[Rfam]
RNA sequence: AUGAACGCCGCAAGAGAGACUUUCCCGCACGAAGGAAAGCGCCGAAGGGGCAAGGCCGGCCGAACAGUGCCGGCGGAAACUCUCAGGCGAAAGGAUUGCGGCCGGACG
Numbered sequence: 001a002u003g004a005a006c007g008c009c010g011c012a013a014g015a016g017a018g019a020c021u022u023u024c025c026c027g028c029a030c031g032a033a034g035g036a037a038a039g040c041g042c043c044g045a046a047g048g049g050g051c052a053a054g055g056c057c058g059g060c061c062g063a064a065c066a067g068u069g070c071c072g073g074c075g076g077a078a079a080c081u082c083u084c085a086g087g088c089g090a091a092a093g094g095a096u097u098g099c100g101g102c103c104g105g106a107c108g
Stems, first nucleotide, its partner, number of pairs: 007102007020039004041088003044084002048082003055074006